[Rfam]
RNA sequence: CUUGUGGACUAUCACAUCAACUGUAUUAGCGAAUUCAAUGCGAGGCAGGAUAGGGAGAAGCAAGAA
Number, nucleotide and partner (000 for none) at each position: 001c064002u063003u062004g061005u060006g000007g000008a000009c053010u052011a051012u050013c049014a000015c000016a000017u000018c000019a000020a000021c048022u047023g046024u000025a000026u000027u000028a000029g041030c040031g039032a000033a000034u038035u000036c000037a000038a034039u031040g030041c029042g000043a000044g000045g000046c023047a022048g021049g013050a012051u011052a010053g009054g000055g000056a000057g000058a000059a000060g005061c004062a003063a002064g001065a000066a000
The record is a 66-nucleotide RNA from Secundilactobacillus mixtipabuli, which matches "RAGATH-18 RNA" in Rfam.
Taxonomically the source falls in Secundilactobacillus (Bacteria, Bacillota, Lactobacillales, Lactobacillaceae).
The match comes from Rfam's covariance-model search (52 bits).
Actinobacteria, Firmicutes, Fusobacteria, Thermotogae (1 example).